[Rfam]
A member of the RNA family "mir-283 microRNA precursor family" from Coptotermes formosanus, 93 nucleotides long. Rfam links the family to the GO terms RISC complex and miRNA-mediated post-transcriptional gene silencing. NCBI's taxonomy places the organism under Eukaryota, Insecta, Neoptera, Termitoidae, Coptotermes. A search with the family's covariance model found it, with a score of 52 bits.
RNA sequence: UAGCCGGUUUAUGGUCAAAUAUCAGCUGGUAAUUCUGGGGGUGCAUGAUUAACGUUACCCAGGCUGCUUGCUGAUAUCAGGCUUUUAUCCGGC
Dot-bracket structure: ..........(.((((..((((((((.((..(.((((((..................)))))).).)).))))))))..)))).)........